[Rfam]
RNA sequence: CUAGCGACUAUAAAUAAAUAUGGCGUUCUUAAAUGCUAGUCUCUGUUAUCAGAGGCGACAUUGCCAAAUUGUCGGGGACACCCUAAAGAUCUUGAUACCAAGCUGGCAGUCGAAAGACGCCGGUGGCCGAGCUAACAGCCCUGGGUAUGGUAAUAAUUCAAGAUAUGCAACAAUGGGUAAUCCGCAGCCAAGUCCUAAACUACGCAAGUAGCAUGGAUGCAGUUCACAGGCCAAAUGGUGAUGGGUAGAUUACUAAAUCUGCUUAAGAUAUGGUCGGUCCCGCUGUGAGAGCAGAUG
Dot-bracket structure: ..........................................................(((((.((...((.((((....(((...........................................................................................)))...))))))((...((((....((((....))))...))))...))...[.[[[[[..)).))))).(((((((....)))))))........]]]]]]......((((....))))...
Numbered sequence: 001c002u003a004g005c006g007a008c009u010a011u012a013a014a015u016a017a018a019u020a021u022g023g024c025g026u027u028c029u030u031a032a033a034u035g036c037u038a039g040u041c042u043c044u045g046u047u048a049u050c051a052g053a054g055g056c057g058a059c060a061u062u063g064c065c066a067a068a069u070u071g072u073c074g075g076g077g078a079c080a081c082c083c084u085a086a087a088g089a090u091c092u093u094g095a096u097a098c099c100a101a102g103c104u105g106g107c108a109g110u111c112g113a114a115a116g117a118c119g120c121c122g123g124u125g126g127c128c129g130a131g132c133u134a135a136c137a138g139c140c141c142u143g144g145g146u147a148u149g150g151u152a153a154u155a156a157u158u159c160a161a162g163a164u165a166u167g168c169a170a171c172a173a174u175g176g177g178u179a180a181u182c183c184g185c186a187g188c189c190a191a192g193u194c195c196u197a198a199a200c201u202a203c204g205c206a207a208g209u210a211g212c213a214u215g216g217a218u219g220c221a222g223u224u225c226a227c228a229g230g231c232c233a234a235a236u237g238g239u240g241a242u243g244g245g246u247a248g249a250u251u252a253c254u255a256a257a258u259c260u261g262c263u264u265a266a267g268a269u270a271u272g273g274u275c276g277g278u279c280c281c282g283c284u285g286u287g288a289g290a291g292c293a294g295a296u297g
Stems, first nucleotide, its partner, number of pairs: 059243005065237002070186002073184004081177003187223002192218004200211004227276001229275005245262007283294004
Record summary: Rfam assigns this 297-nucleotide RNA sequence from Lipomyces starkeyi to the family "Group I catalytic intron". The match comes from Rfam's covariance-model search (85 bits). NCBI's taxonomy places the organism under Eukaryota, Fungi, Ascomycota, Lipomyces, Lipomyces starkeyi.